[Rfam]
RNA sequence: AUUACAGCGUUGAUAGGAAAUAGUAACAAGAUCUUUAUUCUAAGAGAGCUGGUGGUUGGUGCAAACCAGUGAAUAAACCUUGUGAAUCCAUCCUUGAGCAAAAGUCCGAACUACUAUUAGGCUAGUUAAGUAAGACUUUUCGGUUAAAAAGCCGUUAUCAAAUGGAGUGGAAAGGAAGGUGUUUUUCCUUUCAACAAGGGUGGCAACACGGGUAUUAGACUCUCGUCCCUAUU
Numbered sequence: 001a002u003u004a005c006a007g008c009g010u011u012g013a014u015a016g017g018a019a020a021u022a023g024u025a026a027c028a029a030g031a032u033c034u035u036u037a038u039u040c041u042a043a044g045a046g047a048g049c050u051g052g053u054g055g056u057u058g059g060u061g062c063a064a065a066c067c068a069g070u071g072a073a074u075a076a077a078c079c080u081u082g083u084g085a086a087u088c089c090a091u092c093c094u095u096g097a098g099c100a101a102a103a104g105u106c107c108g109a110a111c112u113a114c115u116a117u118u119a120g121g122c123u124a125g126u127u128a129a130g131u132a133a134g135a136c137u138u139u140u141c142g143g144u145u146a147a148a149a150a151g152c153c154g155u156u157a158u159c160a161a162a163u164g165g166a167g168u169g170g171a172a173a174g175g176a177a178g179g180u181g182u183u184u185u186u187c188c189u190u191u192c193a194a195c196a197a198g199g200g201u202g203g204c205a206a207c208a209c210g211g212g213u214a215u216u217a218g219a220c221u222c223u224c225g226u227c228c229c230u231a232u233u
Stems, first nucleotide, its partner, number of pairs: 007099002015094004026083005038072002048070006101139006141154003170192009197230004208226005

This 233-nucleotide sequence from Sutcliffiella cohnii belongs to the Rfam family "T-box leader". A search with the family's covariance model found it, with a score of 147 bits.